[Rfam]
RNA sequence: AUCGAGACUAGAGUCACAUCCUUACACUUAUUAUUGUCUUGAUGUGCUUAUAGUUUUCGAAGAGCAAUUACUGAUCUUAUUCACUGGUUGAGCUUUAUAGUUCAGUCAGUCACACAAUCAGUAACAUUG
Numbered sequence: 001a002u003c004g005a006g007a008c009u010a011g012a013g014u015c016a017c018a019u020c021c022u023u024a025c026a027c028u029u030a031u032u033a034u035u036g037u038c039u040u041g042a043u044g045u046g047c048u049u050a051u052a053g054u055u056u057u058c059g060a061a062g063a064g065c066a067a068u069u070a071c072u073g074a075u076c077u078u079a080u081u082c083a084c085u086g087g088u089u090g091a092g093c094u095u096u097a098u099a100g101u102u103c104a105g106u107c108a109g110u111c112a113c114a115c116a117a118u119c120a121g122u123a124a125c126a127u128u129g
Base pairs, nucleotide, nucleotide: 002060003059004058005057006056007054008053009052012048013047015046016045017044018043019042020041024037025036026035071121072120073119074118075117083110084109085108086107087106089104090103091102092101093100094099
About this RNA
This 129-nucleotide RNA sequence from Chiloscyllium punctatum belongs to the Rfam family "Small nucleolar RNA SNORA3/SNORA45 family". Rfam describes the family as follows. The members of this family belong to the H/ACA class of snoRNAs which are thought to guide the sites of modification of uridines to pseudouridines. This family includes mouse snoMBI-28 and human homologues ACA3 (SNORA3) and ACA3-2 (SNORA45). Both ACA3 and ACA3-2 share the same host gene. For this family Rfam cites "RNomics: an experimental approach that identifies 201 candidates for novel, small, non-messenger RNAs in mouse" (Huttenhofer et al., EMBO J, 2001). The base pairs follow the family's consensus structure, which was predicted with RNAalifold. Clan: SNORA3 clan. Gene Ontology terms of the family: RNA processing and nucleolus. The family's RNA type in Rfam is H/ACA-box small nucleolar RNA. The organism belongs to Chiloscyllium, within Eukaryota.